[Rfam]
RNA sequence: CACACGCGGGCAUUGCGGCUGGCGGGGAGACAUCCCGACCGUCGCUCCGGUGUCAGGACGCUGCCUUGGCGCAACCUCGGCAAGGUCCCGAUGACAGGCCCGCGGUGGACCAACCGGAGAAGAUCUUAUGG
Numbered sequence: 001c002a003c004a005c006g007c008g009g010g011c012a013u014u015g016c017g018g019c020u021g022g023c024g025g026g027g028a029g030a031c032a033u034c035c036c037g038a039c040c041g042u043c044g045c046u047c048c049g050g051u052g053u054c055a056g057g058a059c060g061c062u063g064c065c066u067u068g069g070c071g072c073a074a075c076c077u078c079g080g081c082a083a084g085g086u087c088c089c090g091a092u093g094a095c096a097g098g099c100c101c102g103c104g105g106u107g108g109a110c111c112a113a114c115c116g117g118a119g120a121a122g123a124u125c126u127u128a129u130g131g
Base pairs, nucleotide, nucleotide: 001107002106003105005104006103007102008101009100010099011098015045016044023037024036026035052092053091054090056088057087058086059085